[Rfam]
Nucleotides: 135
Stems, first nucleotide, its partner, number of pairs: 003133006013042005021031003025101004043093004048089002052083001097127001102124005
Number, partner (000 for none) and nucleotide at each position: 001000a002000c003133c004132u005131c006130a007129u008128c009000a010000c011000g012000a013042g014041g015040g016039a017038c018000u019000g020000a021031g022030g023029g024000a025101a026100c027099g028098g029023c030022c031021c032000g033000a034000c035000g036000a037000a038017g039016u040015c041014c042013c043093g044092g045091c046090a047000a048089c049088c050000g051000c052083c053000a054000c055000g056000a057000a058000c059000c060000u061000c062000c063000g064000c065000u066000c067000g068000c069000a070000c071000g072000c073000g074000a075000g076000c077000g078000u079000c080000g081000c082000g083052g084000a085000a086000a087000c088049g089048g090046u091045g092044c093043c094000a095000a096000u097127u098028c099027c100026g101025u102124c103123c104122c105121g106120g107000a108000g109000c110000g111000a112000a113000a114000g115000u116000c117000g118000c119000g120106c121105c122104g123103g124102g125000g126000u127097a128008g129007a130006u131005g132004a133003g134000a135000a